ZMP/ZTP riboswitch aptamer (pfl RNA motif): an 87-nucleotide RNA sequence from Actinoplanes utahensis. Pairs were carried over by alignment from the consensus structure, which is taken from published work. The literature on the family includes a 2019 paper in Acta Crystallogr F Struct Biol Commun by Jones et al., "Co-crystal structure of the Fusobacterium ulcerans ZTP riboswitch using an X-ray free-electron laser". Lineage of the source: Bacteria > Actinomycetota > Actinomycetes > Micromonosporaceae > Actinoplanes. Rfam links the family to the GO terms one-carbon metabolic process and regulation of purine nucleotide biosynthetic process.
RNA sequence: AGGGCGGGCCGUGACUGGCGUUCGGAUGGGGCACCAUCGGGGAGCGGCCUGCCGACUAUGGCUGAGCCGCGCGCCUGGGCGAUCCGA
Number, nucleotide and partner (000 for none) at each position: 001a000002g000003g053004g052005c051006g050007g049008g048009c047010c046011g045012u044013g000014a000015c041016u040017g075018g074019c073020g072021u071022u000023c000024g000025g000026a037027u036028g035029g034030g000031g000032c000033a000034c029035c028036a027037u026038c000039g000040g016041g015042g000043a000044g012045c011046g010047g009048c008049c007050u006051g005052c004053c003054g000055a000056c000057u000058a000059u000060g000061g000062c000063u000064g000065a000066g080067c079068c078069g000070c000071g021072c020073g019074c018075c017076u000077g000078g068079g067080c066081g000082a000083u000084c000085c000086g000087a000